A member of the RNA family "ODC internal ribosome entry site (IRES)" from Suricata suricatta, 156 nucleotides long.
Rfam links the family to the GO term ribosome binding.
The match comes from Rfam's covariance-model search (86 bits).
NCBI's taxonomy places the organism under Eukaryota, Metazoa, Eutheria, Laurasiatheria, Suricata.
RNA sequence: CUUUCCGCUGCAGCACCCAGGGCGCGCGCCGCCUCAGGGGGACUUGGAAUCCCGGAGAGUUGCCUUCGUGAAAAGCUGGCAACAAUUUCUUUCAAUCCCAUCACUUAGUUUCCCAUGUAAGUAUUCGCUGUUGCCGCAGGUGGUUGUUAGGAAUUC
Numbered sequence: 001c002u003u004u005c006c007g008c009u010g011c012a013g014c015a016c017c018c019a020g021g022g023c024g025c026g027c028g029c030c031g032c033c034u035c036a037g038g039g040g041g042a043c044u045u046g047g048a049a050u051c052c053c054g055g056a057g058a059g060u061u062g063c064c065u066u067c068g069u070g071a072a073a074a075g076c077u078g079g080c081a082a083c084a085a086u087u088u089c090u091u092u093c094a095a096u097c098c099c100a101u102c103a104c105u106u107a108g109u110u111u112c113c114c115a116u117g118u119a120a121g122u123a124u125u126c127g128c129u130g131u132u133g134c135c136g137c138a139g140g141u142g143g144u145u146g147u148u149a150g151g152a153a154u155u156c
Base pairs, nucleotide, nucleotide: 006079010076011075016070017068019066020065021064022063023062024061026060027059039053040052041051042050084155085154086153088152089151090150091149097143098142